[Rfam]
RNA sequence: UCGCUGAGAACUGUUUGAAUCAAAUAGUGGAGUGAUUCAAAAGAUUCUCAAAG
Numbered sequence: 001u002c003g004c005u006g007a008g009a010a011c012u013g014u015u016u017g018a019a020u021c022a023a024a025u026a027g028u029g030g031a032g033u034g035a036u037u038c039a040a041a042a043g044a045u046u047c048u049c050a051a052a053g
Stems, first nucleotide, its partner, number of pairs: 005050006012043001014041009